[Rfam]
Nucleotides: 093
Base pairs, nucleotide, nucleotide: 001093002092003091004090005089006088007087008085011026012025013024016021028044029043030042031041032040047067048066049065050064051063070084071083072082073081
Number, partner (000 for none) and nucleotide at each position: 001093g002092g003091g004090a005089g006088u007087g008085g009000a010000u011026a012025g013024g014000u015000u016021c017000u018000g019000g020000u021016g022000u023000u024013c025012c026011u027000u028044c029043u030042a031041g032040u033000c034000u035000u036000c037000a038000a039000a040032a041031c042030u043029a044028g045000u046000a047067u048066g049065a050064g051063g052000g053000g054000u055000u056000a057000g058000u059000a060000g061000c062000u063051u064050c065049u066048u067047g068000g069000g070084u071083g072082g073081g074000u075000u076000c077000g078000a079000u080000u081073c082072c083071c084070a085008c086000a087007c088006a089005u090004u091003c092002c093001c